The record is an 86-nucleotide RNA from Philodulcilactobacillus myokonensis, which matches "SAM-III riboswitch aptamer (SMK box)" in Rfam. Pairs were carried over by alignment from the consensus structure, which is taken from published work. Its family is annotated with regulation of translational initiation and methionine adenosyltransferase activity in the Gene Ontology. It scores 75 bits against the family's covariance model.
RNA sequence: AAGAGUUAUAAGUGUAUAUUCCCGAUAGGAUUCACUUUUAUGUGAAGAUGCCUUGUAACCAAAUCAAUUAGGGGGAAUAAUUAAAG
Numbered sequence: 001a002a003g004a005g006u007u008a009u010a011a012g013u014g015u016a017u018a019u020u021c022c023c024g025a026u027a028g029g030a031u032u033c034a035c036u037u038u039u040a041u042g043u044g045a046a047g048a049u050g051c052c053u054u055g056u057a058a059c060c061a062a063a064u065c066a067a068u069u070a071g072g073g074g075g076a077a078u079a080a081u082u083a084a085a086g
Stems, first nucleotide, its partner, number of pairs: 019077005027053003031046005059072002